The record is a 115-nucleotide sequence from Thermosinus carboxydivorans, which matches "SAM riboswitch aptamer (S box leader)" in Rfam. Taxonomically the source falls in Thermosinus carboxydivorans (Bacteria, Bacillota, Negativicutes, Thermosinus).
[Rfam]
RNA sequence: CUUUCAUCAAGAGCUGGCUGAGGGACUGGCCCGAUGACGCCGCGGCAACCAUCGCAUCUUUGGGUGCGAAACGGUGCCAAUUCCUGCAGAACGGAUAAGUUCUGACAGAUGAGGG
Dot-bracket structure: ((((((((....(.((((...(((.[.[[)))......)))))((((.((.(((((........)))))...))))))...(]].]((((((......))))))..)))))))))